[Rfam]
RNA sequence: AUACAGCAAAUGCCGAAUUCCCUAACGAUAGGGAAGCGGGGGAACCAUCUUUGGGUGAAUUGACCUCCUAUUUCAAGAGGGGUCAUAGGGGACCUUCUACCGAAUCCUUAAGCUAACCUCGUAGGCAUAUGGAAGGAGUCUA
Numbered sequence: 001a002u003a004c005a006g007c008a009a010a011u012g013c014c015g016a017a018u019u020c021c022c023u024a025a026c027g028a029u030a031g032g033g034a035a036g037c038g039g040g041g042g043a044a045c046c047a048u049c050u051u052u053g054g055g056u057g058a059a060u061u062g063a064c065c066u067c068c069u070a071u072u073u074c075a076a077g078a079g080g081g082g083u084c085a086u087a088g089g090g091g092a093c094c095u096u097c098u099a100c101c102g103a104a105u106c107c108u109u110a111a112g113c114u115a116a117c118c119u120c121g122u123a124g125g126c127a128u129a130u131g132g133a134a135g136g137a138g139u140c141u142a
Stems, first nucleotide, its partner, number of pairs: 011127004018035006036122006047051001053107003061085007088101002
RNA: c-di-AMP riboswitch aptamer (ydaO/yuaA leader)
Organism: Paenibacillus durus